[Rfam]
Shown here is a 114-nucleotide RNA sequence from Collichthys lucidus, a member of the family "Potassium channel RNA editing signal".
The organism belongs to Collichthys, within Eukaryota.
By type it is a cis-regulatory element.
A search with the family's covariance model found it, with a score of 108 bits.
RNA sequence: GUCGGCUACGGGGACAUGUACCCCGUGACCAUCGGAGGGAAGAUCGUGGGCUCACUGUGCGCCAUCGCCGGAGUGCUGACCAUCGCGCUCCCGGUUCCCGUCAUCGUUUCCAAU
Numbered sequence: 001g002u003c004g005g006c007u008a009c010g011g012g013g014a015c016a017u018g019u020a021c022c023c024c025g026u027g028a029c030c031a032u033c034g035g036a037g038g039g040a041a042g043a044u045c046g047u048g049g050g051c052u053c054a055c056u057g058u059g060c061g062c063c064a065u066c067g068c069c070g071g072a073g074u075g076c077u078g079a080c081c082a083u084c085g086c087g088c089u090c091c092c093g094g095u096u097c098c099c100g101u102c103a104u105c106g107u108u109u110c111c112a113a114u
Stems, first nucleotide, its partner, number of pairs: 001114002004111002008107004013102003018097001020095002037077002040074001049063003